[Rfam]
RNA sequence: CUCCGCGAAAUCUAUUUAGGUAGAGCGUCGGAUGAAUACCUCGGGGGGUAGAGCACUGGAUGGGCUAGGGGGGUUUACCACCUUACCAAACCUAACCAAACUCCGAAUACCCGAGAGUACUGUCCGGCAGACACACGGCGGGUGCUAACGUCCGUCGUGAAAAGGGAAACAACCCUGACCGCCAGCUAAGGCCCCCAAAUCAUGGCUAAGUGUGAAAGGAUGUGGGGAUCCCAAAACAACCAGGAUGUUGGCUUAGAAGCAGCCAUCAUUUAAAGAAAGCGUAACAGCUCACUGGUCUAGACAAGGGUUCCUGCGCCGACAAUGUAACGGGGCUCAAGCCAUGUGCCGAAGCUGCGGGUGCACGCGAGUGCGCGGUAGCGGAGCGUUCCGUAAGCCAGUGAAGGGAGACCCGCGAGGGCUCCUGGAGGUAUCGGAAGUGCGAAU
Number, nucleotide and partner (000 for none) at each position: 001c383002u382003c381004c380005g379006c378007g000008a000009a000010a000011u024012c023013u022014a021015u020016u000017u000018a000019g000020g015021u014022a013023g012024a011025g000026c130027g128028u127029c126030g125031g124032a123033u122034g000035a000036a121037u000038a000039c000040c115041u114042c113043g112044g111045g110046g000047g000048g000049u000050a000051g104052a102053g101054c000055a000056c000057u098058g097059g096060a000061u094062g093063g092064g091065c000066u000067a000068g087069g086070g084071g083072g082073g081074u080075u000076u000077a000078c000079c000080a074081c073082c072083u071084u070085a000086c069087c068088a000089a000090a000091c064092c063093u062094a061095a000096c059097c058098a057099a000100a000101c053102u052103c000104c051105g000106a000107a000108u000109a000110c045111c044112c043113g042114a041115g040116a000117g000118u000119a000120c000121u036122g033123u032124c031125c030126g029127g028128c027129a000130g026131a000132c000133a000134c159135a158136c157137g156138g155139c154140g153141g152142g151143u150144g000145c000146u000147a000148a000149c000150g143151u142152c141153c140154g139155u138156c137157g136158u135159g134160a000161a000162a000163a000164g175165g174166g173167a000168a000169a000170c000171a000172a000173c166174c165175c164176u000177g000178a000179c357180c356181g355182c354183c000184a353185g352186c351187u000188a000189a000190g347191g346192c345193c000194c000195c000196c000197a000198a000199a344200u000201c343202a342203u341204g340205g339206c338207u000208a000209a000210g000211u000212g000213u000214g000215a000216a000217a000218g317219g316220a000221u000222g314223u313224g312225g311226g310227g309228a308229u307230c306231c305232c000233a000234a000235a000236a000237c000238a000239a296240c295241c294242a293243g292244g000245a269246u268247g267248u000249u000250g264251g263252c262253u000254u000255a000256g000257a000258a000259g000260c000261a000262g252263c251264c250265a000266u000267c247268a246269u245270u274271u000272a000273a000274a270275g290276a000277a000278a000279g288280c287281g000282u000283a000284a000285c000286a000287g280288c279289u000290c275291a000292c243293u242294g241295g240296u239297c000298u000299a000300g000301a000302c000303a000304a000305g231306g230307g229308u228309u227310c226311c225312u224313g223314c222315g000316c219317c218318g000319a000320c000321a000322a000323u000324g000325u000326a000327a000328c000329g000330g000331g000332g000333c000334u000335c000336a000337a000338g206339c205340c204341a203342u202343g201344u199345g192346c191347c190348g000349a000350a000351g186352c185353u184354g182355c181356g180357g179358g373359u372360g371361c370362a369363c368364g000365c000366g000367a000368g363369u362370g361371c360372g359373c358374g000375g000376u000377a000378g006379c005380g004381g003382a002383g001384c439385g000386u436387u435388c434389c433390g432391u000392a000393a000394g429395c428396c427397a000398g000399u000400g000401a000402a000403g423404g422405g421406a420407g419408a000409c418410c417411c416412g000413c000414g000415a000416g411417g410418g409419c407420u406421c405422c404423u403424g000425g000426a000427g396428g395429u394430a000431u000432c390433g389434g388435a387436a386437g000438u000439g384440c000441g000442a000443a000444u000

A member of the RNA family "Bacterial large subunit ribosomal RNA" from Prosthecomicrobium pneumaticum, 444 nucleotides of a longer RNA. The source organism's lineage runs through Bacteria, Pseudomonadati, Pseudomonadota, Alphaproteobacteria and Prosthecomicrobium. The base pairs follow the family's consensus structure, which is taken from published work.